[Rfam]
RNA: Vault RNA
RNA sequence: GGACUGGCUCUAGCUCAGCGGUUCCUUCGCUCCAGUUGUCAUUACAUCCCCACUUGGGGUUCGAGACCCGCGGGCGCUCUCCAGUCUUCUU
Dot-bracket structure: .((((((.....((((.((((....((((................................))))..)))))))).....)))))).....
Numbered sequence: 001g002g003a004c005u006g007g008c009u010c011u012a013g014c015u016c017a018g019c020g021g022u023u024c025c026u027u028c029g030c031u032c033c034a035g036u037u038g039u040c041a042u043u044a045c046a047u048c049c050c051c052a053c054u055u056g057g058g059g060u061u062c063g064a065g066a067c068c069c070g071c072g073g074g075c076g077c078u079c080u081c082c083a084g085u086c087u088u089c090u091u
Stems, first nucleotide, its partner, number of pairs: 002086006013075004018071004026065004